[Rfam]
RNA: Purine riboswitch aptamer
RNA sequence: UACAAUGCGUUUGCAAAACCUCGUAUAAUGUCGGAAAUAUGGACCGACAGUUUCUACCAGGCGACCGGAAAUCGCUUUGACUACGAGGUCCUAUUUCCUCGUG
Numbered sequence: 001u002a003c004a005a006u007g008c009g010u011u012u013g014c015a016a017a018a019c020c021u022c023g024u025a026u027a028a029u030g031u032c033g034g035a036a037a038u039a040u041g042g043a044c045c046g047a048c049a050g051u052u053u054c055u056a057c058c059a060g061g062c063g064a065c066c067g068g069a070a071a072u073c074g075c076u077u078u079g080a081c082u083a084c085g086a087g088g089u090c091c092u093a094u095u096u097c098c099u100c101g102u103g
Stems, first nucleotide, its partner, number of pairs: 018089008029049006058079001059077006